[Rfam]
RNA sequence: CCCAACUUGACGGAGUACAGCUUAGCUGUUGAGAUUGCUGUUGCAAAAUCCGCCGAACCUGACAAGGUUAAUACCUGCGUAGGAAUCAAGUGAACAAAGUAA
Numbered sequence: 001c002c003c004a005a006c007u008u009g010a011c012g013g014a015g016u017a018c019a020g021c022u023u024a025g026c027u028g029u030u031g032a033g034a035u036u037g038c039u040g041u042u043g044c045a046a047a048a049u050c051c052g053c054c055g056a057a058c059c060u061g062a063c064a065a066g067g068u069u070a071a072u073a074c075c076u077g078c079g080u081a082g083g084a085a086u087c088a089a090g091u092g093a094a095c096a097a098a099g100u101a102a
Base pairs, nucleotide, nucleotide: 006090007089008088009087010086011052012051013050014049016046017029018028019027020026021025036045037044038043058083059082060081061080065076066075067074
Dot-bracket structure: .....(((((((((.((((((...)))))......(((....))))..)))).....((((...(((......)))...))))..)))))............
Description: The family of this 102-nucleotide RNA sequence from Moraxella sp. VT-16-12 is "TPP riboswitch aptamer (THI element)". Vitamin B(1) in its active form thiamin pyrophosphate (TPP) is an essential coenzyme that is synthesised by coupling of pyrimidine and thiazole moieties in bacteria. The previously detected thiamin-regulatory element, thi box was extended, resulting in a new, highly conserved RNA secondary structure, the THI element, which is widely distributed in eubacteria and also occurs in some archaea. Analysis of operon structures identified a large number of new candidate thiamin-regulated genes, mostly transporters, in various prokaryotic organisms. The THI element is a riboswitch that directly binds to TPP to regulate gene expression through a variety of mechanisms in archaea, bacteria and eukaryotes. through a variety of mechanisms in archaea, bacteria and eukaryotes. Tandem TPP riboswitches have been reported where both TPP riboswitches respond independently to TPP. The structure of TPP riboswitch has been reported for Escherichia coli and Arabidopsis thaliana. The base pairs follow the family's consensus structure, which is taken from published work.